Background
Shown here is a 122-nucleotide RNA from Solirubrobacter pauli, a member of the family "SAM riboswitch aptamer (S box leader)". Taxonomically the source falls in Solirubrobacter (Bacteria, Bacillati, Thermoleophilia, Solirubrobacterales). From the family's description: The SAM riboswitch is found upstream of a number of genes which code for proteins involved in methionine or cysteine biosynthesis in Gram-positive bacteria. Its family is annotated with regulation of gene expression in the Gene Ontology.
RNA sequence: GACGCAUCCAGAGGGGGGGAGGGAUUGGCCCUAUGAACCCCCGCCAACCUGCUCCCGGUCGCACGCCGGGAAGAAGGUGGCAAUUCCAUCAGGCUCCAACGAGAAAGCCUGGGAGAUGCGGU
Numbered sequence: 001g002a003c004g005c006a007u008c009c010a011g012a013g014g015g016g017g018g019g020a021g022g023g024a025u026u027g028g029c030c031c032u033a034u035g036a037a038c039c040c041c042c043g044c045c046a047a048c049c050u051g052c053u054c055c056c057g058g059u060c061g062c063a064c065g066c067c068g069g070g071a072a073g074a075a076g077g078u079g080g081c082a083a084u085u086c087c088a089u090c091a092g093g094c095u096c097c098a099a100c101g102a103g104a105a106a107g108c109c110u111g112g113g114a115g116a117u118g119c120g121g122u
Base pairs, nucleotide, nucleotide: 001122003120004119005118006117007116008115013042014041015040016039017038021031022030023029026088027087028086043081044080045079046078048077049076050073085114090111091110092109093108094107095106